[Rfam]
RNA sequence: ACGUCUGCGAUGAUGAAAACAUAAGCUGUGAAAUCCUGCAGAGAGCCGGUGGCGGGUGUGAACCGGCGGAGGCAGCAGCUGAUCCAGUUUCUGAGCAGCCGGCAGCAGCCGGAGGGCGGCAGCCUUUAUCCUGCCAUAGAGAGGCCGCAUUAUGCGGCAAAUUGGGUGGCAACGCGGAGCUUCUUCGUCCCAUGA
Numbered sequence: 001a002c003g004u005c006u007g008c009g010a011u012g013a014u015g016a017a018a019a020c021a022u023a024a025g026c027u028g029u030g031a032a033a034u035c036c037u038g039c040a041g042a043g044a045g046c047c048g049g050u051g052g053c054g055g056g057u058g059u060g061a062a063c064c065g066g067c068g069g070a071g072g073c074a075g076c077a078g079c080u081g082a083u084c085c086a087g088u089u090u091c092u093g094a095g096c097a098g099c100c101g102g103c104a105g106c107a108g109c110c111g112g113a114g115g116g117c118g119g120c121a122g123c124c125u126u127u128a129u130c131c132u133g134c135c136a137u138a139g140a141g142a143g144g145c146c147g148c149a150u151u152a153u154g155c156g157g158c159a160a161a162u163u164g165g166g167u168g169g170c171a172a173c174g175c176g177g178a179g180c181u182u183c184u185u186c187g188u189c190c191c192a193u194g195a
Stems, first nucleotide, its partner, number of pairs: 007096002015091004024080006034070003045067006099112005114125003144158006163192004174188005

Source information
Rfam assigns this 195-nucleotide sequence from Cuneatibacter caecimuris to the family "T-box leader". The family's RNA type in Rfam is cis-regulatory leader. NCBI's taxonomy places the organism under Bacteria, Bacillota, Clostridia, Lachnospirales, Cuneatibacter.